RNA sequence: GUUUGUUGAAAAUAACCCCCGGCUCUGGCCAUAGUCGCGGGUGAGAUUCGGCGCCUAGAGCGUUCAGAGGCCUUAGCUCACCGCCCACUGCCGGUGUGGAAGGGUGAAACCCCGGCCCCGACACCC
Numbered sequence: 001g002u003u004u005g006u007u008g009a010a011a012a013u014a015a016c017c018c019c020c021g022g023c024u025c026u027g028g029c030c031a032u033a034g035u036c037g038c039g040g041g042u043g044a045g046a047u048u049c050g051g052c053g054c055c056u057a058g059a060g061c062g063u064u065c066a067g068a069g070g071c072c073u074u075a076g077c078u079c080a081c082c083g084c085c086c087a088c089u090g091c092c093g094g095u096g097u098g099g100a101a102g103g104g105u106g107a108a109a110c111c112c113c114g115g116c117c118c119c120g121a122c123a124c125c126c
Base pairs, nucleotide, nucleotide: 005052006051007050008049009048010047013044015042016041021036022035023034024033067119069117070116071115072114078107079106080105081104082103086098087097088096